[Rfam]
RNA sequence: GUCCGGGGACGACCCCAGGACUUCUUACAACUGCGGGACGGCCCGC
Number, nucleotide and partner (000 for none) at each position: 001g021002u020003c019004c018005g016006g015007g014008g013009a000010c000011g000012a000013c008014c007015c006016c005017a000018g004019g003020a002021c001022u000023u000024c000025u000026u000027a000028c000029a000030a000031c000032u000033g046034c045035g044036g043037g042038a000039c000040g000041g000042c037043c036044c035045g034046c033
A member of the RNA family "Guanidine-II riboswitch aptamer (mini-ykkC)" from Pseudomonas sp. StFLB209, 46 nucleotides long. Lineage of the source: Bacteria > Pseudomonadota > Gammaproteobacteria > Pseudomonadales > Pseudomonas. A reference for the family is Weinberg et al. (2007), "Identification of 22 candidate structured RNAs in bacteria using the CMfinder comparative genomics pipeline", Nucleic Acids Res. Its family is annotated with regulation of gene expression in the Gene Ontology. About the family: Simpler in structure and has fewer highly conserved nucleotide positions than the ykkC-yxkD leader. The family's consensus secondary structure is taken from published work.